[Rfam]
RNA sequence: CGUUUACUUGGACCCCAAACGUAGUUGUCUGGUUAGCUCUAGUUCUUAGAGGAUCAAAGUAGAGGAGUAUGUGCUGAUUAAAAGGUGGCAGCUUCUUGAUUAUCAUUGGUUCUUGCUGAGGAAUGUAUUCUAAUUAGGCCAGUUACCAACACAUAAGAUUCGAUGUUUAUAAAAUGCUGGAUGAGGCAAUUUGCUUGCAAAGGGCUCGCUAGUAAUAAUGGAUAUUGGGUUUUAUGAAGAUUGCAGAAUACAGGCAAUUCACUAUGAACGAUUGUUAAUUUUGUUGGUGCAUCCUUGCUCUGUCUAUAUAGGUGGCUUGCCACUUGUAUAGCUUGUAAGGUGUAUCAGUUUAAUGUUGCGGUUUUUGUAGUGCUUGUAUUUAUGUUGGAGUGGGUGCAAUAAAUGUCCCGUCUUGAAACACGG
Numbered sequence: 001c002g003u004u005u006a007c008u009u010g011g012a013c014c015c016c017a018a019a020c021g022u023a024g025u026u027g028u029c030u031g032g033u034u035a036g037c038u039c040u041a042g043u044u045c046u047u048a049g050a051g052g053a054u055c056a057a058a059g060u061a062g063a064g065g066a067g068u069a070u071g072u073g074c075u076g077a078u079u080a081a082a083a084g085g086u087g088g089c090a091g092c093u094u095c096u097u098g099a100u101u102a103u104c105a106u107u108g109g110u111u112c113u114u115g116c117u118g119a120g121g122a123a124u125g126u127a128u129u130c131u132a133a134u135u136a137g138g139c140c141a142g143u144u145a146c147c148a149a150c151a152c153a154u155a156a157g158a159u160u161c162g163a164u165g166u167u168u169a170u171a172a173a174a175u176g177c178u179g180g181a182u183g184a185g186g187c188a189a190u191u192u193g194c195u196u197g198c199a200a201a202g203g204g205c206u207c208g209c210u211a212g213u214a215a216u217a218a219u220g221g222a223u224a225u226u227g228g229g230u231u232u233u234a235u236g237a238a239g240a241u242u243g244c245a246g247a248a249u250a251c252a253g254g255c256a257a258u259u260c261a262c263u264a265u266g267a268a269c270g271a272u273u274g275u276u277a278a279u280u281u282u283g284u285u286g287g288u289g290c291a292u293c294c295u296u297g298c299u300c301u302g303u304c305u306a307u308a309u310a311g312g313u314g315g316c317u318u319g320c321c322a323c324u325u326g327u328a329u330a331g332c333u334u335g336u337a338a339g340g341u342g343u344a345u346c347a348g349u350u351u352a353a354u355g356u357u358g359c360g361g362u363u364u365u366u367g368u369a370g371u372g373c374u375u376g377u378a379u380u381u382a383u384g385u386u387g388g389a390g391u392g393g394g395u396g397c398a399a400u401a402a403a404u405g406u407c408c409c410g411u412c413u414u415g416a417a418a419c420a421c422g423g
Base pairs, nucleotide, nucleotide: 001405002404003403004402005401006400008399009398010397012395013394021146022145023144024143025142026141027140151385152384153383154382155381156380157379408423409422410421411420
RNA: Eukaryotic large subunit ribosomal RNA, nucleotides 425 to 847